[Rfam]
RNA: Makes More Granules Regulator RNA (mmgR)
RNA sequence: UAUUGCUGCCCUCCUUGGGCGUUUCCUCCCUAGACUUGGGCCACUUGCUUUCGCGAGUGGCCCUUUUUUCUUGGGCG
Numbered sequence: 001u002a003u004u005g006c007u008g009c010c011c012u013c014c015u016u017g018g019g020c021g022u023u024u025c026c027u028c029c030c031u032a033g034a035c036u037u038g039g040g041c042c043a044c045u046u047g048c049u050u051u052c053g054c055g056a057g058u059g060g061c062c063c064u065u066u067u068u069u070c071u072u073g074g075g076c077g
Base pairs, nucleotide, nucleotide: 008020009019010018011017039062040061041060042059043058044057045056046055047054